Shown here is a 124-nucleotide RNA sequence from Hydrotalea sandarakina, a member of the family "TPP riboswitch aptamer (THI element)".
A search with the family's covariance model found it, with a score of 70 bits.
Taxonomically the source falls in Hydrotalea (Bacteria, Pseudomonadati, Chitinophagales, Chitinophagaceae).
RNA sequence: UUUUAUUCCUCGGGGUGCUGGAUAGCACAAAUGGGUAUACACAUUUGUUUUUUAUCCGGCUGAGAUAAUACCCGUUGAACCUGAACAGGGUAAUUCCUGCGAAGGGAAGGUGUACUGCUUAUUU
Numbered sequence: 001u002u003u004u005a006u007u008c009c010u011c012g013g014g015g016u017g018c019u020g021g022a023u024a025g026c027a028c029a030a031a032u033g034g035g036u037a038u039a040c041a042c043a044u045u046u047g048u049u050u051u052u053u054a055u056c057c058g059g060c061u062g063a064g065a066u067a068a069u070a071c072c073c074g075u076u077g078a079a080c081c082u083g084a085a086c087a088g089g090g091u092a093a094u095u096c097c098u099g100c101g102a103a104g105g106g107a108a109g110g111u112g113u114a115c116u117g118c119u120u121a122u123u124u
Base pairs, nucleotide, nucleotide: 006112008110009109010108011074012073013072014071016068017060018059019058020057021056022055023054024053025052080105081104082103086099087098088097089096